[Rfam]
RNA sequence: UGGCUACUCCGCAGGCCUUACAAAGCGGAACGGCAGGAGAAGGCUACCUCCUAAAACGCCUA
Numbered sequence: 001u002g003g004c005u006a007c008u009c010c011g012c013a014g015g016c017c018u019u020a021c022a023a024a025g026c027g028g029a030a031c032g033g034c035a036g037g038a039g040a041a042g043g044c045u046a047c048c049u050c051c052u053a054a055a056a057c058g059c060c061u062a
Stems, first nucleotide, its partner, number of pairs: 002017003009028004036051004
RNA: GP20-b RNA